A member of the RNA family "Molybdenum/Tungsten riboswitch aptamer (Moco RNA motif)" from Alkalibaculum bacchi, 120 nucleotides long. The family's consensus secondary structure is taken from published work.

[Rfam]
RNA sequence: GAGUAGUAAAAGCUCCGAUUUUUGCAACCUAAGGACAAGUUCUAUGGUUGCAAAAACGUAAGGGUGGUGCUGUAAACGGUACUGCCUUCCAUUUUGAAAAGGAGGAAGAUAUAUGUUUAU
Numbered sequence: 001g002a003g004u005a006g007u008a009a010a011a012g013c014u015c016c017g018a019u020u021u022u023u024g025c026a027a028c029c030u031a032a033g034g035a036c037a038a039g040u041u042c043u044a045u046g047g048u049u050g051c052a053a054a055a056a057c058g059u060a061a062g063g064g065u066g067g068u069g070c071u072g073u074a075a076a077c078g079g080u081a082c083u084g085c086c087u088u089c090c091a092u093u094u095u096g097a098a099a100a101g102g103a104g105g106a107a108g109a110u111a112u113a114u115g116u117u118u119a120u
Stems, first nucleotide, its partner, number of pairs: 003114002013104004019056011033043003062087011088097002